[Rfam]
RNA sequence: UCCCCCACAGUCUUCCGGCCCUCGUUUCUCGCAAGAGAUGUCUAUUGCAGACCGCCCGUCCUUUUUGGUUACCCUCCCAUAUGCCGCUCUCGAGUCUGUAACAGAAUCUCGUGAAUGCCGCAGCUGGAUUAUGGUGGGUAGCGCGUCCAGUAUAGGAUGUACCAAGCGGAUGGGCGUACGAUGUUCGGAACUUAACCCUAAGAAGAUAU
Numbered sequence: 001u002c003c004c005c006c007a008c009a010g011u012c013u014u015c016c017g018g019c020c021c022u023c024g025u026u027u028c029u030c031g032c033a034a035g036a037g038a039u040g041u042c043u044a045u046u047g048c049a050g051a052c053c054g055c056c057c058g059u060c061c062u063u064u065u066u067g068g069u070u071a072c073c074c075u076c077c078c079a080u081a082u083g084c085c086g087c088u089c090u091c092g093a094g095u096c097u098g099u100a101a102c103a104g105a106a107u108c109u110c111g112u113g114a115a116u117g118c119c120g121c122a123g124c125u126g127g128a129u130u131a132u133g134g135u136g137g138g139u140a141g142c143g144c145g146u147c148c149a150g151u152a153u154a155g156g157a158u159g160u161a162c163c164a165a166g167c168g169g170a171u172g173g174g175c176g177u178a179c180g181a182u183g184u185u186c187g188g189a190a191c192u193u194a195a196c197c198c199u200a201a202g203a204a205g206a207u208a209u
Stems, first nucleotide, its partner, number of pairs: 009192003015188004

The record is a 209-nucleotide part of an RNA from Fusarium heterosporum, which matches "Ascomycota telomerase RNA" in Rfam. The organism belongs to Fusarium heterosporum species complex, within Eukaryota. The family has 4 seed sequences and 475 matches in Rfam 15.1. It is annotated as a non-coding RNA gene. Pairs were carried over by alignment from the consensus structure.